[Rfam]
RNA sequence: CUCUGAAUCAACAUAUGAUACAGGGCAAAGGAG
Numbered sequence: 001c002u003c004u005g006a007a008u009c010a011a012c013a014u015a016u017g018a019u020a021c022a023g024g025g026c027a028a029a030g031g032a033g
Base pairs, nucleotide, nucleotide: 001025002024003023004022005021007019008018009017
RNA: L31-Firmicutes ribosomal protein leader